[Rfam]
RNA sequence: CUGCCCGAUGAUUAUAAAAAGAUGCGUUAAGAGGACUUAUGCUGGAGUUCUUUAAAACCUCUCUUCUCUCUUUUCUGUUUACUAUUUCUUUCUUUAGAUGUCCAGUGUCCUAUGAGCGAUGAUUAUGAGAUAUGAGGGCAA
Numbered sequence: 001c002u003g004c005c006c007g008a009u010g011a012u013u014a015u016a017a018a019a020a021g022a023u024g025c026g027u028u029a030a031g032a033g034g035a036c037u038u039a040u041g042c043u044g045g046a047g048u049u050c051u052u053u054a055a056a057a058c059c060u061c062u063c064u065u066c067u068c069u070c071u072u073u074u075c076u077g078u079u080u081a082c083u084a085u086u087u088c089u090u091u092c093u094u095u096a097g098a099u100g101u102c103c104a105g106u107g108u109c110c111u112a113u114g115a116g117c118g119a120u121g122a123u124u125a126u127g128a129g130a131u132a133u134g135a136g137g138g139c140a141a
Base pairs, nucleotide, nucleotide: 002140003139004138005137006136032051033050034049035048036047037046038045
Dot-bracket structure: .(((((.........................(((((((......)))))))....................................................................................))))).

The record is a 141-nucleotide RNA sequence from Echinops telfairi, which matches "Small nucleolar RNA SNORD97" in Rfam. The organism belongs to Echinops, within Eukaryota. Pairs were carried over by alignment from the consensus structure, which was predicted with WAR.